[Rfam]
RNA sequence: CACGACAAGGGCAAACCCCUCGCGAGGGGGGGACGCAAAGCCACGGGUCCCAUGAGGACAGCCGGGUUGCCGAAU
Numbered sequence: 001c002a003c004g005a006c007a008a009g010g011g012c013a014a015a016c017c018c019c020u021c022g023c024g025a026g027g028g029g030g031g032g033a034c035g036c037a038a039a040g041c042c043a044c045g046g047g048u049c050c051c052a053u054g055a056g057g058a059c060a061g062c063c064g065g066g067u068u069g070c071c072g073a074a075u
Stems, first nucleotide, its partner, number of pairs: 003072002011036002016031006034061001039068004044064003047059003

This 75-nucleotide sequence from Bipolaricaulis sanaerobius belongs to the Rfam family "c-di-GMP-I-GGC riboswitch aptamer". Lineage of the source: Bacteria > Candidatus Bipolaricaulota > Bipolaricaulia (SeqCode) > Candidatus Bipolaricaulaceae > Bipolaricaulis (SeqCode). The base pairs follow the family's consensus structure, which is taken from published work.